Overview:
A member of the RNA family "mir-764 microRNA precursor family" from Rattus norvegicus, 84 nucleotides long. Gene Ontology terms of the family: miRNA-mediated post-transcriptional gene silencing and RISC complex. For this family Rfam cites "Mammalian microRNAs: experimental evaluation of novel and previously annotated genes" (Chiang et al., Genes Dev, 2010).
RNA sequence: AAUCUCGGAGGCAGGUGCUCACAUGUCCUCCUCCAUGCCUACACAUACAUGGAGGAGGCCAUAGUGGCAACUGUCACCAUGAUU
Numbered sequence: 001a002a003u004c005u006c007g008g009a010g011g012c013a014g015g016u017g018c019u020c021a022c023a024u025g026u027c028c029u030c031c032u033c034c035a036u037g038c039c040u041a042c043a044c045a046u047a048c049a050u051g052g053a054g055g056a057g058g059c060c061a062u063a064g065u066g067g068c069a070a071c072u073g074u075c076a077c078c079a080u081g082a083u084u
Stems, first nucleotide, its partner, number of pairs: 001084004007078002010075005016069003020066003024061002027058008036049002040045001